TrkB IRES: a 353-nucleotide RNA sequence. The family has 16 seed sequences and 130 matches in Rfam 15.1. Rfam's curators write: This family represents the TrkB internal ribosome entry site (IRES) which is present in the 5' leader sequence of the mRNA. TrkB is a neurotrophin receptor which is essential for the development and maintenance of the nervous system. A reference for the family is Dobson et al. (2005), "Internal initiation of translation of the TrkB mRNA is mediated by multiple regions within the 5' leader", Nucleic Acids Res. By type it is an internal ribosome entry site. Gene Ontology term of the family: ribosome binding.

RNA sequence: CCCCCAUUCGCAUCUAACAAGGAAUCUGCGCCCCAGAGAGUCCCGGGAGCGCCGCCGGUCGGUGCCCGGCGCGCCGGGCCAUGCAGCGACGGCCGCCGCGGAGCUCCGAGCAGCGGUAGCGCCCCCCUGUAAAGCGGUUCGCUAUGCCGGGGCCACUGUGAACCCUGCCGCCUGCCGGAACACUCUUCGCUCCGGACCAGCUCAGCCUCUGAUAAGCUGGACUCGGCACGCCCGCAACAAGCACCGAGGAGUUAAGAGAGCCGCAAGCGCAGGGAAGGCCUCCCGGCACGGGUGGGGGAAAGCGGCCGGUGCAGCGCGGGGACAGGCACUCGGGCUGGCACUGGCUGCUAGGG
Numbered sequence: 001c002c003c004c005c006a007u008u009c010g011c012a013u014c015u016a017a018c019a020a021g022g023a024a025u026c027u028g029c030g031c032c033c034c035a036g037a038g039a040g041u042c043c044c045g046g047g048a049g050c051g052c053c054g055c056c057g058g059u060c061g062g063u064g065c066c067c068g069g070c071g072c073g074c075c076g077g078g079c080c081a082u083g084c085a086g087c088g089a090c091g092g093c094c095g096c097c098g099c100g101g102a103g104c105u106c107c108g109a110g111c112a113g114c115g116g117u118a119g120c121g122c123c124c125c126c127c128u129g130u131a132a133a134g135c136g137g138u139u140c141g142c143u144a145u146g147c148c149g150g151g152g153c154c155a156c157u158g159u160g161a162a163c164c165c166u167g168c169c170g171c172c173u174g175c176c177g178g179a180a181c182a183c184u185c186u187u188c189g190c191u192c193c194g195g196a197c198c199a200g201c202u203c204a205g206c207c208u209c210u211g212a213u214a215a216g217c218u219g220g221a222c223u224c225g226g227c228a229c230g231c232c233c234g235c236a237a238c239a240a241g242c243a244c245c246g247a248g249g250a251g252u253u254a255a256g257a258g259a260g261c262c263g264c265a266a267g268c269g270c271a272g273g274g275a276a277g278g279c280c281u282c283c284c285g286g287c288a289c290g291g292g293u294g295g296g297g298g299a300a301a302g303c304g305g306c307c308g309g310u311g312c313a314g315c316g317c318g319g320g321g322a323c324a325g326g327c328a329c330u331c332g333g334g335c336u337g338g339c340a341c342u343g344g345c346u347g348c349u350a351g352g353g
Stems, first nucleotide, its partner, number of pairs: 001298010021043003025037004045284005051279003057111001059109004065101002067098005073093004078087002113159005119154001121153003125149001129147003133143004163274006170268002173265003177262002183258005189252005197220005202212004223247004230242002301349012313336003317332004